[Rfam]
RNA: Microsporidia small subunit ribosomal RNA, nucleotides 754 to 1258
Organism: Cystosporogenes operophterae
RNA sequence: UGACGGAGCUACACCACAAGGAGUGGAUUGUGCGGCUUAAGUUGACUCAACGCGAGGAAAACUACCAGGGGCAAGUAUUGUGUAGAGAAGAGCAAUACAGAAGUGGUGCAUGGUCGUUGGAAAUUGAUGGGAUGACUUUGAGCUUAAAUGGUUGAAUGAGUGAGAUCUUCAGACAUGUUCCUCACGGGACAGGAAGGAGGAGGCUAUAACAGAUCAGAGAUGCCCUUAGAUGCCCUGGGCUGCACGCGCAAUACAAUAGCACUGAGACGGAGAGAGCGGAAAGUGUUCUGAUGGAUUAUGUGUUGUAAGACAGAUAUGAAAGAGGAAUUCCUAGUAAGUAUGUAUCAACAAUGGAUAUUGAAUGAGUCCCUGUAGCUUGUACACACCGUCCGUCGCUAUCUCAGAUGUUUUUCAGGAUGAAGAGUCACGGCUCUGAAUAAUGAAAAGUAGAUAAGAUGUAAGUCGUAGCAAGGUUUCGGUCGGUGAACCAGCAGCAGGAUCAUAA
Numbered sequence: 001u002g003a004c005g006g007a008g009c010u011a012c013a014c015c016a017c018a019a020g021g022a023g024u025g026g027a028u029u030g031u032g033c034g035g036c037u038u039a040a041g042u043u044g045a046c047u048c049a050a051c052g053c054g055a056g057g058a059a060a061a062c063u064a065c066c067a068g069g070g071g072c073a074a075g076u077a078u079u080g081u082g083u084a085g086a087g088a089a090g091a092g093c094a095a096u097a098c099a100g101a102a103g104u105g106g107u108g109c110a111u112g113g114u115c116g117u118u119g120g121a122a123a124u125u126g127a128u129g130g131g132a133u134g135a136c137u138u139u140g141a142g143c144u145u146a147a148a149u150g151g152u153u154g155a156a157u158g159a160g161u162g163a164g165a166u167c168u169u170c171a172g173a174c175a176u177g178u179u180c181c182u183c184a185c186g187g188g189a190c191a192g193g194a195a196g197g198a199g200g201a202g203g204c205u206a207u208a209a210c211a212g213a214u215c216a217g218a219g220a221u222g223c224c225c226u227u228a229g230a231u232g233c234c235c236u237g238g239g240c241u242g243c244a245c246g247c248g249c250a251a252u253a254c255a256a257u258a259g260c261a262c263u264g265a266g267a268c269g270g271a272g273a274g275a276g277c278g279g280a281a282a283g284u285g286u287u288c289u290g291a292u293g294g295a296u297u298a299u300g301u302g303u304u305g306u307a308a309g310a311c312a313g314a315u316a317u318g319a320a321a322g323a324g325g326a327a328u329u330c331c332u333a334g335u336a337a338g339u340a341u342g343u344a345u346c347a348a349c350a351a352u353g354g355a356u357a358u359u360g361a362a363u364g365a366g367u368c369c370c371u372g373u374a375g376c377u378u379g380u381a382c383a384c385a386c387c388g389u390c391c392g393u394c395g396c397u398a399u400c401u402c403a404g405a406u407g408u409u410u411u412u413c414a415g416g417a418u419g420a421a422g423a424g425u426c427a428c429g430g431c432u433c434u435g436a437a438u439a440a441u442g443a444a445a446a447g448u449a450g451a452u453a454a455g456a457u458g459u460a461a462g463u464c465g466u467a468g469c470a471a472g473g474u475u476u477c478g479g480u481c482g483g484u485g486a487a488c489c490a491g492c493a494g495c496a497g498g499a500u501c502a503u504a505a
Base pairs, nucleotide, nucleotide: 001383002382003380004379005378007377008376009375010374011373012372013371016367017366020331021330022329023328024327025254027252028251029250030249031248032247033246034245035243036242042055043054044053065238066237067236068235069234070233075098076097077096078095079094080093102226103225105224106223107222108221111220113214114213115212116210117209118208119207123161124160125159127157128156129138130137131136140153141152143150167202168201169200170199174193176191177190178189179188180187181186258287259286260285261284262283263282292321297316298315299314301312302311303310337359338358339357340356341355343353344352388469389468391465392464394462397458398457399456400455401454403452406449407448408447409446410445411444412443413442414441417438418437421434422433423432424431425430474497475496477494479492480491482489483488
Dot-bracket structure: (((((.(((((((..((..((((((.((((((((((.....(((........))).........((((((....((((((............))))))...((.((((..(.(((((((...(((.(((((....))).((.(......).))..)).))).....((((...(.((((((....)))))).).....))))....)))).))).....)))))))......))))))...)).)))))))).)...((((((..................))))))....(....(((.(((......))).)))....).....))))).....(((((.((.......)).)))))......))...)))))))))).))....((.((.(..(((((.(..(((((((((..((..(((((....)))))..))..)))))))))..).)))))...).))..))....((.(.((.((....)).)).).))........